[Rfam]
RNA: Small nucleolar RNA SNORA23
RNA sequence: GGUGGAUGGGGUGCAUGGUGCUCAUCUGUGUUAUGUGUUGUUGCCAGAUUGUGUUUUGCAUUCUGGGCAGCAGUGCUCACUCCACACCUGCAGCCACAGAACAACUGGAGAUCAUAGUACUGGCCCUUGACGUCUUUAUAGACAUCUCACCAUUGGCCAGCCUCCAAAGUCUCCAACAAGU
Numbered sequence: 001g002g003u004g005g006a007u008g009g010g011g012u013g014c015a016u017g018g019u020g021c022u023c024a025u026c027u028g029u030g031u032u033a034u035g036u037g038u039u040g041u042u043g044c045c046a047g048a049u050u051g052u053g054u055u056u057u058g059c060a061u062u063c064u065g066g067g068c069a070g071c072a073g074u075g076c077u078c079a080c081u082c083c084a085c086a087c088c089u090g091c092a093g094c095c096a097c098a099g100a101a102c103a104a105c106u107g108g109a110g111a112u113c114a115u116a117g118u119a120c121u122g123g124c125c126c127u128u129g130a131c132g133u134c135u136u137u138a139u140a141g142a143c144a145u146c147u148c149a150c151c152a153u154u155g156g157c158c159a160g161c162c163u164c165c166a167a168a169g170u171c172u173c174c175a176a177c178a179a180g181u
Stems, first nucleotide, its partner, number of pairs: 013091003030080002035077001036075006043068002045065003050060003107174005120160006128152002132143004